[Rfam]
RNA sequence: GCCAAAUGAUGUGAUGACAUAGAUUGCAUUAGCACUCUGUGCAAAGAUGACCAGCUAUCUAUCACCCAAGACUGAUGGUU
Dot-bracket structure: ((((...........................((((...)))).................................)))).
Numbered sequence: 001g002c003c004a005a006a007u008g009a010u011g012u013g014a015u016g017a018c019a020u021a022g023a024u025u026g027c028a029u030u031a032g033c034a035c036u037c038u039g040u041g042c043a044a045a046g047a048u049g050a051c052c053a054g055c056u057a058u059c060u061a062u063c064a065c066c067c068a069a070g071a072c073u074g075a076u077g078g079u080u
Stems, first nucleotide, its partner, number of pairs: 001079004032042004
Rfam assigns this 80-nucleotide RNA from Chanos chanos to the family "Small nucleolar RNA SNORD83".
The organism belongs to Chanos, within Eukaryota.
Pairs were carried over by alignment from the consensus structure, which was predicted with PFOLD.
Rfam classes the family as a C/D-box small nucleolar RNA.